[Rfam]
RNA sequence: UGCGGUUCUCAGGUGACGGACCCCAGAAUCGGGCUCCCUCCUCUCUAGUUCUGGGUGCAUCGCCCAAGAACCACA
Numbered sequence: 001u002g003c004g005g006u007u008c009u010c011a012g013g014u015g016a017c018g019g020a021c022c023c024c025a026g027a028a029u030c031g032g033g034c035u036c037c038c039u040c041c042u043c044u045c046u047a048g049u050u051c052u053g054g055g056u057g058c059a060u061c062g063c064c065c066a067a068g069a070a071c072c073a074c075a
Stems, first nucleotide, its partner, number of pairs: 002074001005071005012064005020056004025052005031046003